[Rfam]
Shown here is a 102-nucleotide RNA from Artemisia annua, a member of the family "MIR162_1 microRNA precursor family". For this family Rfam cites "MicroRNAs in plants" (Reinhart et al., Genes Dev, 2002). It scores 88 bits against the family's covariance model. Rfam links the family to the GO terms RISC complex and miRNA-mediated post-transcriptional gene silencing.
RNA sequence: UAGAGUGUCGUUGGAUGCAGCGGUUCAUCGAUCUGUUACUUAAAAAUGAUAAAUGAAUCAAAAGAAAUCGAUCGAUAAACCUCUGCAUCCAGCGCUCUCCCA
Dot-bracket structure: ............(((..(((.((((.(((((((..((............................))..))))))).)))).)))..)))............